The family of this 83-nucleotide RNA from Bombyx mori is "mir-2807 microRNA precursor family". Pairs were carried over by alignment from the consensus structure, which was predicted with RNAalifold. A search with the family's covariance model found it, with a score of 63 bits. The organism belongs to Bombyx, within Eukaryota. Rfam 15.1 lists 5,120 matches to the family in 8 species.
[Rfam]
RNA sequence: CUUACUCAAAUUUGUAUGCAGUUGGAAGGUUUGCUACGUUUGCUGCUAGGGGCGCUGUUCCAACGGCAUACAAUUUUGAGUUA
Numbered sequence: 001c002u003u004a005c006u007c008a009a010a011u012u013u014g015u016a017u018g019c020a021g022u023u024g025g026a027a028g029g030u031u032u033g034c035u036a037c038g039u040u041u042g043c044u045g046c047u048a049g050g051g052g053c054g055c056u057g058u059u060c061c062a063a064c065g066g067c068a069u070a071c072a073a074u075u076u077u078g079a080g081u082u083a
Base pairs, nucleotide, nucleotide: 008077009076010075012073013072014071015070016069018067021064022063023062024061025060026059027058029056034050035049038046039045